[Rfam]
RNA sequence: ACAGUACAAACUGAGCAGACCAUUGGCGAAAGCCAAGGAGUCGGGCCAUCAUGGCAGUGGAAUCUUUACAUCCACGGGACAGUA
Numbered sequence: 001a002c003a004g005u006a007c008a009a010a011c012u013g014a015g016c017a018g019a020c021c022a023u024u025g026g027c028g029a030a031a032g033c034c035a036a037g038g039a040g041u042c043g044g045g046c047c048a049u050c051a052u053g054g055c056a057g058u059g060g061a062a063u064c065u066u067u068a069c070a071u072c073c074a075c076g077g078g079a080c081a082g083u084a
Base pairs, nucleotide, nucleotide: 010083011082012081013080016078018042019041020040023036024035025034026033027032045055046054047053048052057075058074059073060072061071
RNA: NiCo (Nickel/Cobalt) riboswitch aptamer
Organism: Coprococcus eutactus